[Rfam]
RNA sequence: GAAGCGGGCCAGGCGGUCGCGCGCGGGAUCGGGCUCGCCCGGUGCCCGCGUGAGGAAAGUCCGGGCUCCACAGGGCAGGAUGCUGGCUAACGGCCAGGCGGGGCGACCCGACGGAAAGUGCCGCAGAAAAGAAGACUCCCACCUGCGUGCAGACUCGGCGCGCAAAGGGAAAAGAUGAAACGGUGGUGUAAGAGACCACCAGCGUCGCGGCGACGCGGCGGCUUGGUAAACCCCAUCCGGAGCAAGCGCGAAUAGGGGCGCGAUAGGCCGGCCCGGCCUGCGCCCGGGUGGCGUGCGAAGAGCGGCGCGGCAACGCGUCCGCCAAGAUAAAUGACCGUCCCCGACAGAACCCGGCUUAUCGGCCCGCUUCGCCC
Numbered sequence: 001g002a003a004g005c006g007g008g009c010c011a012g013g014c015g016g017u018c019g020c021g022c023g024c025g026g027g028a029u030c031g032g033g034c035u036c037g038c039c040c041g042g043u044g045c046c047c048g049c050g051u052g053a054g055g056a057a058a059g060u061c062c063g064g065g066c067u068c069c070a071c072a073g074g075g076c077a078g079g080a081u082g083c084u085g086g087c088u089a090a091c092g093g094c095c096a097g098g099c100g101g102g103g104c105g106a107c108c109c110g111a112c113g114g115a116a117a118g119u120g121c122c123g124c125a126g127a128a129a130a131g132a133a134g135a136c137u138c139c140c141a142c143c144u145g146c147g148u149g150c151a152g153a154c155u156c157g158g159c160g161c162g163c164a165a166a167g168g169g170a171a172a173a174g175a176u177g178a179a180a181c182g183g184u185g186g187u188g189u190a191a192g193a194g195a196c197c198a199c200c201a202g203c204g205u206c207g208c209g210g211c212g213a214c215g216c217g218g219c220g221g222c223u224u225g226g227u228a229a230a231c232c233c234c235a236u237c238c239g240g241a242g243c244a245a246g247c248g249c250g251a252a253u254a255g256g257g258g259c260g261c262g263a264u265a266g267g268c269c270g271g272c273c274c275g276g277c278c279u280g281c282g283c284c285c286g287g288g289u290g291g292c293g294u295g296c297g298a299a300g301a302g303c304g305g306c307g308c309g310g311c312a313a314c315g316c317g318u319c320c321g322c323c324a325a326g327a328u329a330a331a332u333g334a335c336c337g338u339c340c341c342c343g344a345c346a347g348a349a350c351c352c353g354g355c356u357u358a359u360c361g362g363c364c365c366g367c368u369u370c371g372c373c374c
Base pairs, nucleotide, nucleotide: 001370002369003368004367005366006365007364008363009362010361011359012339013338014337015336016335017334018333020052021051022050023049024048025047026046027045057357058356059355061354062353063352064351065350066242067241068240069239073274074273075272076271078238079237080236081235082234083097084096085095086094087093098112099110100109101108102107113233114232118231119230120227121226122225136174137173139169140168144164145163146162147161148160149159150158182200183199184198185197186196187195202222203220204219205218206217207216208215209214246294247293248292249291256285257284258283259282260281261280265279266278267277268276269275302322303321304320305319306317307316308315309314

Bacterial RNase P class A: a 374-nucleotide RNA sequence from [Collinsella] massiliensis. A search with the family's covariance model found it, with a score of 268 bits. Gene Ontology terms of the family: tRNA processing, dimeric ribonuclease P complex and ribonuclease P activity. It is annotated as a ribozyme. About the family: Ribonuclease P (RNase P) is a ubiquitous endoribonuclease, found in archaea, bacteria and eukarya as well as chloroplasts and mitochondria. Its best characterised activity is the generation of mature 5'-ends of tRNAs by cleaving the 5'-leader elements of precursor-tRNAs. Cellular RNase Ps are ribonucleoproteins. RNA from bacterial RNase Ps retains its catalytic activity in the absence of the protein subunit, i.e. it is a ribozyme.